Background:
Shown here is a 61-nucleotide RNA sequence from Gossypium stocksii, a member of the family "Plastid-psbA-2 3UTR RNA". The source organism's lineage runs through Eukaryota, Streptophytina, Mesangiospermae, rosids and Gossypium. Its Rfam clan is "Plastid-psbA 3UTR RNA clan". Rfam classes the family as a cis-regulatory element. The family's consensus secondary structure was predicted with LocARNA. Plastid psbA-2 is a non-coding RNA (ncRNA) present in plastids. It was identified in inverted repeat sequences in the 3 prime untranslate region (3UTR) of photosystem II quinone-binding protein (psbA).

RNA sequence: AUAAAGGAGCAAUAACAAUUUCUUGUUCUAGUAAGAGUGUUGGUAUUGCUCCUUUAUUUAG
Numbered sequence: 001a002u003a004a005a006g007g008a009g010c011a012a013u014a015a016c017a018a019u020u021u022c023u024u025g026u027u028c029u030a031g032u033a034a035g036a037g038u039g040u041u042g043g044u045a046u047u048g049c050u051c052c053u054u055u056a057u058u059u060a061g
Base pairs, nucleotide, nucleotide: 001057002056003055004054005053006052007051008050009049010048011047012046013045014044015040016039017038021036022035023034024033025032